Rfam assigns this 76-nucleotide sequence from Myotis davidii to the family "mir-9229 microRNA precursor family". Pairs were carried over by alignment from the consensus structure, which was predicted with RNAalifold. The organism belongs to Myotis, within Eukaryota.

[Rfam]
RNA sequence: GAGACACCCCUAUGGAACAGGGCUUGCAUCAGUGGGGCCCUGGUGCUCACUGAGUCUGCCCCUUGAGUGUGUCAUU
Numbered sequence: 001g002a003g004a005c006a007c008c009c010c011u012a013u014g015g016a017a018c019a020g021g022g023c024u025u026g027c028a029u030c031a032g033u034g035g036g037g038c039c040c041u042g043g044u045g046c047u048c049a050c051u052g053a054g055u056c057u058g059c060c061c062c063u064u065g066a067g068u069g070u071g072u073c074a075u076u
Stems, first nucleotide, its partner, number of pairs: 001075001003073005009067001011065002014062002018058002021056003029053008037044002